[Rfam]
RNA sequence: GAAUCAAAAAUUAAAUACAACGGAAACAUUGCCACAGUCGAAUGCUUUGUGCCUCAGAUAGCACUACUAAUUUGAUUGCCAGAAAAAGUGAUGCAAGAUCAUCAGUUUUCUAGGUUUCCAAGAUUAACUUUUUUACUUGGAACAACAAGGAAGUUCAUGGACCGUGUGUUCUAACCAGCGUCUAGCCAAAAAACAGGCGUUGGGAGCGAUAGUCCAAGAAUGUCGAAGGAAGUCCACAUUU
Dot-bracket structure: ....................((.............((((((((..........................))))))))..............)).................................((((.....((...............((((.(.(((...(((((((..............................))))).)).))).).))))......))))))........
RNA: Small nucleolar RNA snR34
Organism: Hanseniaspora osmophila